[Rfam]
RNA sequence: CAGCGUGCAUUCGUGUGCGUUGAUUGUCGCUAUGCAUGCCGGAUGGGUUCCGGAGCAUGCCGCUCGUCUGUUGGGUCACCUAGUCAGUGCAUUUUCUCCGUGGUGAACACCACGACCGGUGGAACUGCCAGUCUGCUGUGGUCAAGUCGCCUCCUCCUGGUGCGCUUGCGUGUUAGGUGGGGACGAUCGCAGGCAGAGUCGGUGAACGGCGCAGUGGUGCUUCGGUACUGCCGCGUGUUAUCGUGCACUCUCUGCUGUAAACGGUUGGUGGAGUGACUAAGUGCUGCUUGCCACUUCUACACUAGCCGGCGGACCACAGUGGUGAAAGGGACUGUGCAGGGCACCGGAGUUGUCCACCUCAUUCAAUAUGGUAUCCGGCACGCACGUUGCAGGUGCUAGCUAAUCGGAGUGUGCCGUUGUCUGCCUGGUGUUGGGCUUGGCUGUCGUGUUGCCUGCGCAAAGUGGGUCCGGCAGUGGUUCGAUGCUUGGCAGUCGCAAUGUGUUGCGCACUUCGGGUGUCUGUGGUACCGGGGGUGAAAUAGUCAGUGGUGCUGUGGUAGAC
Numbered sequence: 001c002a003g004c005g006u007g008c009a010u011u012c013g014u015g016u017g018c019g020u021u022g023a024u025u026g027u028c029g030c031u032a033u034g035c036a037u038g039c040c041g042g043a044u045g046g047g048u049u050c051c052g053g054a055g056c057a058u059g060c061c062g063c064u065c066g067u068c069u070g071u072u073g074g075g076u077c078a079c080c081u082a083g084u085c086a087g088u089g090c091a092u093u094u095u096c097u098c099c100g101u102g103g104u105g106a107a108c109a110c111c112a113c114g115a116c117c118g119g120u121g122g123a124a125c126u127g128c129c130a131g132u133c134u135g136c137u138g139u140g141g142u143c144a145a146g147u148c149g150c151c152u153c154c155u156c157c158u159g160g161u162g163c164g165c166u167u168g169c170g171u172g173u174u175a176g177g178u179g180g181g182g183a184c185g186a187u188c189g190c191a192g193g194c195a196g197a198g199u200c201g202g203u204g205a206a207c208g209g210c211g212c213a214g215u216g217g218u219g220c221u222u223c224g225g226u227a228c229u230g231c232c233g234c235g236u237g238u239u240a241u242c243g244u245g246c247a248c249u250c251u252c253u254g255c256u257g258u259a260a261a262c263g264g265u266u267g268g269u270g271g272a273g274u275g276a277c278u279a280a281g282u283g284c285u286g287c288u289u290g291c292c293a294c295u296u297c298u299a300c301a302c303u304a305g306c307c308g309g310c311g312g313a314c315c316a317c318a319g320u321g322g323u324g325a326a327a328g329g330g331a332c333u334g335u336g337c338a339g340g341g342c343a344c345c346g347g348a349g350u351u352g353u354c355c356a357c358c359u360c361a362u363u364c365a366a367u368a369u370g371g372u373a374u375c376c377g378g379c380a381c382g383c384a385c386g387u388u389g390c391a392g393g394u395g396c397u398a399g400c401u402a403a404u405c406g407g408a409g410u411g412u413g414c415c416g417u418u419g420u421c422u423g424c425c426u427g428g429u430g431u432u433g434g435g436c437u438u439g440g441c442u443g444u445c446g447u448g449u450u451g452c453c454u455g456c457g458c459a460a461a462g463u464g465g466g467u468c469c470g471g472c473a474g475u476g477g478u479u480c481g482a483u484g485c486u487u488g489g490c491a492g493u494c495g496c497a498a499u500g501u502g503u504u505g506c507g508c509a510c511u512u513c514g515g516g517u518g519u520c521u522g523u524g525g526u527a528c529c530g531g532g533g534g535u536g537a538a539a540u541a542g543u544c545a546g547u548g549g550u551g552c553u554g555u556g557g558u559a560g561a562c
Stems, first nucleotide, its partner, number of pairs: 001554006
Background
Eukaryotic large subunit ribosomal RNA: a 562-nucleotide part of an RNA from Vidua macroura. Clan: LSU clan.